[Rfam]
RNA sequence: CGCCGCGUCAUCUGGGGAGUAGCCGCCUGCGCCCCCUUGUCUCGGCCAUCGCCUGGGCAAGACCAGCAGGACCUGUCGUCAACAUACUUGGUCGAGAGACCAUGGCGCACAGGAGGACGGAAAGGACCGUCCGGGCGAGACCAAUGGCGUUGCAGCUCCGUCC
Numbered sequence: 001c002g003c004c005g006c007g008u009c010a011u012c013u014g015g016g017g018a019g020u021a022g023c024c025g026c027c028u029g030c031g032c033c034c035c036c037u038u039g040u041c042u043c044g045g046c047c048a049u050c051g052c053c054u055g056g057g058c059a060a061g062a063c064c065a066g067c068a069g070g071a072c073c074u075g076u077c078g079u080c081a082a083c084a085u086a087c088u089u090g091g092u093c094g095a096g097a098g099a100c101c102a103u104g105g106c107g108c109a110c111a112g113g114a115g116g117a118c119g120g121a122a123a124g125g126a127c128c129g130u131c132c133g134g135g136c137g138a139g140a141c142c143a144a145u146g147g148c149g150u151u152g153c154a155g156c157u158c159c160g161u162c163c
Stems, first nucleotide, its partner, number of pairs: 026070005072113005077107005089102005115163006

Rfam assigns this 163-nucleotide RNA sequence from Novosphingobium lindaniclasticum to the family "Manganese Mn2+ riboswitch aptamer (yybP-ykoY)". The family has 29 seed sequences and 1,126 matches in Rfam 15.1. It scores 47 bits against the family's covariance model.